[Rfam]
RNA sequence: AUCUUAUCAAGAGUGACGUAAGGACAGGCCUUUUGAUGUCACAGCAACCUACCUCAGGCAAGGUGCUAAAUCCUGACAGAUGAGAG
Numbered sequence: 001a002u003c004u005u006a007u008c009a010a011g012a013g014u015g016a017c018g019u020a021a022g023g024a025c026a027g028g029c030c031u032u033u034u035g036a037u038g039u040c041a042c043a044g045c046a047a048c049c050u051a052c053c054u055c056a057g058g059c060a061a062g063g064u065g066c067u068a069a070a071u072c073c074u075g076a077c078a079g080a081u082g083a084g085a086g
Base pairs, nucleotide, nucleotide: 002085003084004083005082006081007080008079013042014041015040016039017038021031022030023029025075026074027073028072043067044066045065046064048063049062050060052058053057071078
Dot-bracket structure: .(((((((....(((((...(((.[[[[)))......)))))((((.(((.((...)).).))))))...(]]]]..)))))))).